Cyano-1 RNA: a 68-nucleotide RNA sequence. Rfam classes the family as a small RNA. Rfam's curators put it in the seed alignment. The base pairs follow the family's consensus structure, which is taken from published work.
RNA sequence: UUGUGUGUAGGAGGAAUUGAUUAAUCUCAGUGGAAACAAGGAAACACUUGAUUUAAAUCAAUUCUCGA
Numbered sequence: 001u002u003g004u005g006u007g008u009a010g011g012a013g014g015a016a017u018u019g020a021u022u023a024a025u026c027u028c029a030g031u032g033g034a035a036a037c038a039a040g041g042a043a044a045c046a047c048u049u050g051a052u053u054u055a056a057a058u059c060a061a062u063u064c065u066c067g068a
Base pairs, nucleotide, nucleotide: 014064015063016062017061018060019059021056022055027051028050029049030047031046032045